[Rfam]
RNA sequence: CAGGCCAGAAGAGGCGCGUUGCCCAGGUACGGUGUUUGAGAAGCCGGUUCGACGAAAGCACCUGAGGGGGAGCAACGCCGAGGUGAUUAAACGUCCUGGCGCGUUAAUCACCGGCUACAGGGGCUGAAUCCCCUGGGCUGUCACCAGAAACGUUCCCAGUCGGGCGUUUCGCAAGGUGGAGCACUUCUGGGUGA
Numbered sequence: 001c002a003g004g005c006c007a008g009a010a011g012a013g014g015c016g017c018g019u020u021g022c023c024c025a026g027g028u029a030c031g032g033u034g035u036u037u038g039a040g041a042a043g044c045c046g047g048u049u050c051g052a053c054g055a056a057a058g059c060a061c062c063u064g065a066g067g068g069g070g071a072g073c074a075a076c077g078c079c080g081a082g083g084u085g086a087u088u089a090a091a092c093g094u095c096c097u098g099g100c101g102c103g104u105u106a107a108u109c110a111c112c113g114g115c116u117a118c119a120g121g122g123g124c125u126g127a128a129u130c131c132c133c134u135g136g137g138c139u140g141u142c143a144c145c146a147g148a149a150a151c152g153u154u155c156c157c158a159g160u161c162g163g164g165c166g167u168u169u170c171g172c173a174a175g176g177u178g179g180a181g182c183a184c185u186u187c188u189g190g191g192u193g194a
Base pairs, nucleotide, nucleotide: 006189007188008187009186010185011184016078017077018076019075020074021073022072024070031062032061033060034059035058036057037056082112083111084110085109086108087107088106089105090104092103093102113139114138115137116136118135119134120133121132122131123130141179142178143177144176145175
Dot-bracket structure: .....((((((....(((((((.(......(((((((..................))))))).......).)))))))...(((((((((.((........)))))))))))((((.((((((......)))))))))).(((((.............................)))))....)))))).....